[Rfam]
RNA sequence: AGUGUUUGAAAUAGACAAAGGGUCCAGUGUUUAAAAAGCCCCGCAGAAGCUCGGGGCUUUUUGCUAUGUGGCCUUAGCUAUCUUAAGGAUAGUCACAACACUGGGCGCUCGCGCCCUUUUUUU
Dot-bracket structure: ..................................(((((((((........)))))))))..........................................((((......)))).......
Numbered sequence: 001a002g003u004g005u006u007u008g009a010a011a012u013a014g015a016c017a018a019a020g021g022g023u024c025c026a027g028u029g030u031u032u033a034a035a036a037a038g039c040c041c042c043g044c045a046g047a048a049g050c051u052c053g054g055g056g057c058u059u060u061u062u063g064c065u066a067u068g069u070g071g072c073c074u075u076a077g078c079u080a081u082c083u084u085a086a087g088g089a090u091a092g093u094c095a096c097a098a099c100a101c102u103g104g105g106c107g108c109u110c111g112c113g114c115c116c117u118u119u120u121u122u123u
Stems, first nucleotide, its partner, number of pairs: 035060009103116004

The family of this 123-nucleotide RNA from Idiomarina sp. MD25a is "Gammaprotebacteria rimP leader". On this family, see Naville and Gautheret, Genome Biol 2010: "Premature terminator analysis sheds light on a hidden world of bacterial transcriptional attenuation". A search with the family's covariance model found it, with a score of 60 bits. It is annotated as a cis-regulatory leader.